[Rfam]
RNA sequence: CCUGCGGGCCGUGACUGGCGCGCUGGACCGUGGGUCCGAGGGAUGGGACAGACCAUCGGGGAGCGGCUCGAAGGAACAUGUGCCGUGCGCCUGGGCCGUACCG
Numbered sequence: 001c002c003u004g005c006g007g008g009c010c011g012u013g014a015c016u017g018g019c020g021c022g023c024u025g026g027a028c029c030g031u032g033g034g035u036c037c038g039a040g041g042g043a044u045g046g047g048a049c050a051g052a053c054c055a056u057c058g059g060g061g062a063g064c065g066g067c068u069c070g071a072a073g074g075a076a077c078a079u080g081u082g083c084c085g086u087g088c089g090c091c092u093g094g095g096c097c098g099u100a101c102c103g
Stems, first nucleotide, its partner, number of pairs: 003072001005070008015060002017091005043056004082096003
RNA: ZMP/ZTP riboswitch aptamer (pfl RNA motif)